[Rfam]
RNA sequence: CGGUUACGCCUUCUUUACCGUUAUCAAGGAAGGUACUCGGCCAUGCUAAGGGAAGCAUUAUUCCUUAGGCGCAUGUCGCCGCCAGCAUGGUGUGAGGGGAGGUUCGAUGCCUC
Numbered sequence: 001c002g003g004u005u006a007c008g009c010c011u012u013c014u015u016u017a018c019c020g021u022u023a024u025c026a027a028g029g030a031a032g033g034u035a036c037u038c039g040g041c042c043a044u045g046c047u048a049a050g051g052g053a054a055g056c057a058u059u060a061u062u063c064c065u066u067a068g069g070c071g072c073a074u075g076u077c078g079c080c081g082c083c084a085g086c087a088u089g090g091u092g093u094g095a096g097g098g099g100a101g102g103u104u105c106g107a108u109g110c111c112u113c
Base pairs, nucleotide, nucleotide: 001020002019003018004017008034009033010032011031012030013029036096037095038094039093040091041090042089043088044087045086046085047084050065051064052063053062054061068080069079070078071077099113100112101111102110103109
RNA: epsC RNA
Organism: Shouchella clausii